The family of this 323-nucleotide RNA from Otolemur garnettii is "Small Cajal body-specific RNA 7". Rfam classes the family as a small Cajal body RNA. Rfam 15.1 lists 570 matches to the family in 531 species. The sequence is in the family's curated seed alignment. Pairs were carried over by alignment from the consensus structure. Taxonomically the source falls in Otolemur (Eukaryota, Opisthokonta, Teleostomi, Euteleostomi).

RNA sequence: UGGAAAUGAUGAAAUAGAGAUAAUUGGGUGUUGAAUGUUGUGUGGCUGGAAGUUUUUAAUAUGUAUGUUUAGUAGUUUUUCAUUAAUAUUUAAUAGGUACUAGAGAUAGUGUGUGUGCAUGUGUGUGUUUGUGGCGGCUAUGCCAAGGGGGCACUGACGGGUGAUGCUGACAUUGGAGUGCAUCUGAGGCUGUUGUAGACGUAACAUGGGUCAUUGAUUACAACAUUGCCAAUGAUUAUAACCCAAGAACAGCUCACCUAAUUAGCCGAACACCCUAAAAUCUCUAACAGGUUCAUGAAACAUGGUCCUGUGAUCUGAUCCAA
Numbered sequence: 001u002g003g004a005a006a007u008g009a010u011g012a013a014a015u016a017g018a019g020a021u022a023a024u025u026g027g028g029u030g031u032u033g034a035a036u037g038u039u040g041u042g043u044g045g046c047u048g049g050a051a052g053u054u055u056u057u058a059a060u061a062u063g064u065a066u067g068u069u070u071a072g073u074a075g076u077u078u079u080u081c082a083u084u085a086a087u088a089u090u091u092a093a094u095a096g097g098u099a100c101u102a103g104a105g106a107u108a109g110u111g112u113g114u115g116u117g118c119a120u121g122u123g124u125g126u127g128u129u130u131g132u133g134g135c136g137g138c139u140a141u142g143c144c145a146a147g148g149g150g151g152c153a154c155u156g157a158c159g160g161g162u163g164a165u166g167c168u169g170a171c172a173u174u175g176g177a178g179u180g181c182a183u184c185u186g187a188g189g190c191u192g193u194u195g196u197a198g199a200c201g202u203a204a205c206a207u208g209g210g211u212c213a214u215u216g217a218u219u220a221c222a223a224c225a226u227u228g229c230c231a232a233u234g235a236u237u238a239u240a241a242c243c244c245a246a247g248a249a250c251a252g253c254u255c256a257c258c259u260a261a262u263u264a265g266c267c268g269a270a271c272a273c274c275c276u277a278a279a280a281u282c283u284c285u286a287a288c289a290g291g292u293u294c295a296u297g298a299a300a301c302a303u304g305g306u307c308c309u310g311u312g313a314u315c316u317g318a319u320c321c322a323a
Stems, first nucleotide, its partner, number of pairs: 001322004191225008201214002204211002